The record is a 73-nucleotide RNA sequence from Cavia porcellus, which matches "Small nucleolar RNA Z40" in Rfam. The organism belongs to Cavia, within Eukaryota. Rfam links the family to the GO terms nucleolus and RNA processing. For this family Rfam cites "The high diversity of snoRNAs in plants: identification and comparative study of 120 snoRNA genes from Oryza sativa" (Chen et al., Nucleic Acids Res, 2003). The family's consensus secondary structure was predicted with PFOLD. The match comes from Rfam's covariance-model search (89 bits). Rfam classes the family as a C/D-box small nucleolar RNA.

RNA sequence: UAAUGUUGUGAUGACUGGCAAAAUGUUCAACUGCUCUGAAAGGGCUGAAUGAAAAUAGCCUCUCUGAACAUGA
Numbered sequence: 001u002a003a004u005g006u007u008g009u010g011a012u013g014a015c016u017g018g019c020a021a022a023a024u025g026u027u028c029a030a031c032u033g034c035u036c037u038g039a040a041a042g043g044g045c046u047g048a049a050u051g052a053a054a055a056u057a058g059c060c061u062c063u064c065u066g067a068a069c070a071u072g073a
Stems, first nucleotide, its partner, number of pairs: 003071004